[Rfam]
RNA: Plant small nucleolar RNA U3
Organism: Physcomitrium patens
RNA sequence: ACGACUAUACUUGAACAGGAUCUGUUCUAUAGUGCGUACAUCUGAUCUGUGUUCUCCAACACAGACAAGACCUUCAACCCGGACGAUGAUUCAGGGCUCUCCGGCCUGAGCGCGAUUGCCGCGGCUGGUGCCAGUGGCCCCCUUGCGGGGGCCGGAGCCAGCCUGCCAGAUGAACGUCCCGCCUCCUCAUUCCUGGGGGCGGUGAUGGACGGAGAGCGUUCUGACGGGC
Numbered sequence: 001a002c003g004a005c006u007a008u009a010c011u012u013g014a015a016c017a018g019g020a021u022c023u024g025u026u027c028u029a030u031a032g033u034g035c036g037u038a039c040a041u042c043u044g045a046u047c048u049g050u051g052u053u054c055u056c057c058a059a060c061a062c063a064g065a066c067a068a069g070a071c072c073u074u075c076a077a078c079c080c081g082g083a084c085g086a087u088g089a090u091u092c093a094g095g096g097c098u099c100u101c102c103g104g105c106c107u108g109a110g111c112g113c114g115a116u117u118g119c120c121g122c123g124g125c126u127g128g129u130g131c132c133a134g135u136g137g138c139c140c141c142c143u144u145g146c147g148g149g150g151g152c153c154g155g156a157g158c159c160a161g162c163c164u165g166c167c168a169g170a171u172g173a174a175c176g177u178c179c180c181g182c183c184u185c186c187u188c189a190u191u192c193c194u195g196g197g198g199g200c201g202g203u204g205a206u207g208g209a210c211g212g213a214g215a216g217c218g219u220u221c222u223g224a225c226g227g228g229c
Stems, first nucleotide, its partner, number of pairs: 001037002006032001013027006043067002047064006078228004096217008105208002110177003126160002130158002135154008179202008